[Rfam]
RNA sequence: GGGAUGUGCUCAGAGCAGGGGCCUGAAACAUGGUUCUUCAGUUUUUAACACACCCAACAGGAAUCCGGCGUCACUGUGAGGAGGGACACAAAACUUGUGGCCUUUCUACAAACAAAUUUCGUACAUGU
Numbered sequence: 001g002g003g004a005u006g007u008g009c010u011c012a013g014a015g016c017a018g019g020g021g022c023c024u025g026a027a028a029c030a031u032g033g034u035u036c037u038u039c040a041g042u043u044u045u046u047a048a049c050a051c052a053c054c055c056a057a058c059a060g061g062a063a064u065c066c067g068g069c070g071u072c073a074c075u076g077u078g079a080g081g082a083g084g085g086a087c088a089c090a091a092a093a094c095u096u097g098u099g100g101c102c103u104u105u106c107u108a109c110a111a112a113c114a115a116a117u118u119u120c121g122u123a124c125a126u127g128u
Stems, first nucleotide, its partner, number of pairs: 002055002005052004013044004018039004022033002070119001075114003081109001083103003087099005
Shown here is a 128-nucleotide RNA sequence from Otolemur garnettii, a member of the family "Small nucleolar RNA SNORA11". It is annotated as an H/ACA-box small nucleolar RNA. Pairs were carried over by alignment from the consensus structure, which was predicted with RNAalifold. The family has 35 seed sequences and 2,014 matches in Rfam 15.1. U107 (SNORA11) is a member of the H/ACA class of snoRNAs that guide the sites of modification of uridines to pseudouridines. This snoRNA was identified by RT-PCR from blood cells and its expression confirmed by Northern blot analysis. There is no predicted target for this guide snRNA. Taxonomically the source falls in Otolemur (Eukaryota, Euteleostomi, Primates, Strepsirrhini).